[Rfam]
RNA sequence: ACUGGAAGCUGCUGGUACCCACUGGGACCAGUCAUGGGCAAAAGAUAUAUGUUUUGUCCACAGUGGCAGUCUUCCUAGAGUGAAGUGGAGGUCUCUGUCUGCUUUAGGAGAGCCAGCUAAACCAGAUCGUUCCCCUCCAUACACA
Numbered sequence: 001a002c003u004g005g006a007a008g009c010u011g012c013u014g015g016u017a018c019c020c021a022c023u024g025g026g027a028c029c030a031g032u033c034a035u036g037g038g039c040a041a042a043a044g045a046u047a048u049a050u051g052u053u054u055u056g057u058c059c060a061c062a063g064u065g066g067c068a069g070u071c072u073u074c075c076u077a078g079a080g081u082g083a084a085g086u087g088g089a090g091g092u093c094u095c096u097g098u099c100u101g102c103u104u105u106a107g108g109a110g111a112g113c114c115a116g117c118u119a120a121a122c123c124a125g126a127u128c129g130u131u132c133c134c135c136u137c138c139a140u141a142c143a144c145a
Base pairs, nucleotide, nucleotide: 004075005074006073008070009069010068011067012066031061035060036059037058038057039056044053045052046051087138088137089136090135091134095129097127098126099125101123103121104120105119106118107117
About this RNA
The family of this 145-nucleotide RNA sequence from Ceyx cyanopectus is "Small Cajal body specific RNA 3". Rfam classes the family as a small Cajal body RNA. scaRNAs are a specific class of small nuclear RNAs which localise to the Cajal bodies and guide the modification of RNA polymerase II transcribed spliceosomal RNAs U1, U2, U4, U5 and U12. Rfam links the family to the GO terms nucleolus, RNA processing and Cajal body. Clan: SCARNA3 clan. Pairs were carried over by alignment from the consensus structure, which was predicted with RNAalifold. The source organism's lineage runs through Eukaryota, Sauria, Theropoda, Neoaves and Ceyx.